Notes:
Small nucleolar RNA GlsR18: a 147-nucleotide RNA from Giardia duodenalis. Rfam classes the family as an H/ACA-box small nucleolar RNA. Its family is annotated with nucleolus and RNA processing in the Gene Ontology. The base pairs follow the family's consensus structure, which was predicted with WAR.
RNA sequence: ACGCAACCUAAUCACCGCCCCGACAGUCCUUCGCUUAAUUAUGCGGCCGGUGCGGCUGCCCACUGGUACCUUUGGGCGCGCACAGGCCCACAGCCGGGGUCAUAGGUGGGGAGCGGAUACUGUCCAUCCUCAAUCCGGGCCCUCACA
Numbered sequence: 001a002c003g004c005a006a007c008c009u010a011a012u013c014a015c016c017g018c019c020c021c022g023a024c025a026g027u028c029c030u031u032c033g034c035u036u037a038a039u040u041a042u043g044c045g046g047c048c049g050g051u052g053c054g055g056c057u058g059c060c061c062a063c064u065g066g067u068a069c070c071u072u073u074g075g076g077c078g079c080g081c082a083c084a085g086g087c088c089c090a091c092a093g094c095c096g097g098g099g100u101c102a103u104a105g106g107u108g109g110g111g112a113g114c115g116g117a118u119a120c121u122g123u124c125c126a127u128c129c130u131c132a133a134u135c136c137g138g139g140c141c142c143u144c145a146c147a
Stems, first nucleotide, its partner, number of pairs: 003144001045088004050083005057078006105136002107132006115125004